[Rfam]
RNA sequence: CACGUCAGAGCGCUUUGCUGACGUGGAUACAAAUCGCGCUUUCAAGGCCGCGCUUGGUUCCCACGUUAGCAAAUCGCGCUGAUGUGA
Numbered sequence: 001c002a003c004g005u006c007a008g009a010g011c012g013c014u015u016u017g018c019u020g021a022c023g024u025g026g027a028u029a030c031a032a033a034u035c036g037c038g039c040u041u042u043c044a045a046g047g048c049c050g051c052g053c054u055u056g057g058u059u060c061c062c063a064c065g066u067u068a069g070c071a072a073a074u075c076g077c078g079c080u081g082a083u084g085u086g087a
Base pairs, nucleotide, nucleotide: 001086002085003084004083005082006081007080008079010077011076012075014073015072016071017070018069019068020067021066023064024063025062026061029058030057032055033054035052036051037050038049040047041046

Overview:
Rfam assigns this 87-nucleotide sequence from Gossypium davidsonii to the family "MIR7486 microRNA precursor family". A search with the family's covariance model found it, with a score of 72 bits. Pairs were carried over by alignment from the consensus structure, which was predicted with RNAalifold. Taxonomically the source falls in Gossypium (Eukaryota, Embryophyta, Spermatophyta, Malvales). Rfam 15.1 lists 10,132 matches to the family in 36 species.